[Rfam]
RNA: Group II catalytic intron D1-D4-3
RNA sequence: UUUGGGGUGACCCAAAAUCUGAAAGAAGCCUAAAACAAAGCUUUGUCCUAAUGAAUAAGAACUGGAUAUAAGGCCUACUUGGAGGAUGAGGUGGCAAUAGACACCGAAGUCCGAAGUCCAAACGUAAUUCAAGGAGGUAAAUCCAGUAGUAUAAAGUAGGUGAUGUUU
Numbered sequence: 001u002u003u004g005g006g007g008u009g010a011c012c013c014a015a016a017a018u019c020u021g022a023a024a025g026a027a028g029c030c031u032a033a034a035a036c037a038a039a040g041c042u043u044u045g046u047c048c049u050a051a052u053g054a055a056u057a058a059g060a061a062c063u064g065g066a067u068a069u070a071a072g073g074c075c076u077a078c079u080u081g082g083a084g085g086a087u088g089a090g091g092u093g094g095c096a097a098u099a100g101a102c103a104c105c106g107a108a109g110u111c112c113g114a115a116g117u118c119c120a121a122a123c124g125u126a127a128u129u130c131a132a133g134g135a136g137g138u139a140a141a142u143c144c145a146g147u148a149g150u151a152u153a154a155a156g157u158a159g160g161u162g163a164u165g166u167u168u
Stems, first nucleotide, its partner, number of pairs: 001016006028168001031165002035161002040157007048149003062146006073138003078133006084112004090105004